This 55-nucleotide RNA belongs to the Rfam family "Glutamine-II riboswitch aptamer". Pairs were carried over by alignment from the consensus structure, which is taken from published work. Rfam links the family to the GO term glutamine binding. For this family Rfam cites "Structure and ligand binding of the glutamine-II riboswitch" (Huang et al., Nucleic Acids Res, 2019).

RNA sequence: GUCCGUUCAUCCCUUAUGGGACGCAUGCAAUCAGAUCAUGGAACGGGGGUCUGAU
Dot-bracket structure: ...[[[[[.((((....))))........((((((((...]]]]].)).))))))